[Rfam]
RNA: Plastid-ycf2 5UTR RNA
Organism: Capsicum annuum
RNA sequence: GUACAUCCAAUAGGAAUUGAACCAACAAAUUCGCCAAUUAUGAGUUGGGCGAUUUAACCAUUCAUCCAUGGAUGC
Numbered sequence: 001g002u003a004c005a006u007c008c009a010a011u012a013g014g015a016a017u018u019g020a021a022c023c024a025a026c027a028a029a030u031u032c033g034c035c036a037a038u039u040a041u042g043a044g045u046u047g048g049g050c051g052a053u054u055u056a057a058c059c060a061u062u063c064a065u066c067c068a069u070g071g072a073u074g075c
Base pairs, nucleotide, nucleotide: 004074005073006072007071008070011025013023014022040069041068042067044066046064047063048062049061051059
Dot-bracket structure: ...(((((..(.((.......)).)..............(((.(.((((.(.......).)))).))))))))).